The record is a 69-nucleotide RNA sequence from Acetobacter orientalis, which matches "Fluoride riboswitch aptamer (crcB RNA motif)" in Rfam. The match comes from Rfam's covariance-model search (56 bits). The base pairs follow the family's consensus structure, which is taken from published work.
RNA sequence: AACCUUACAGGGGAUGGAGUACCCCCUUAUAACCGCCCGCUUGUAAGGGCUGAUGACUCCUGCCGUAGU
Numbered sequence: 001a002a003c004c005u006u007a008c009a010g011g012g013g014a015u016g017g018a019g020u021a022c023c024c025c026c027u028u029a030u031a032a033c034c035g036c037c038c039g040c041u042u043g044u045a046a047g048g049g050c051u052g053a054u055g056a057c058u059c060c061u062g063c064c065g066u067a068g069u
Stems, first nucleotide, its partner, number of pairs: 010026004016060005035050004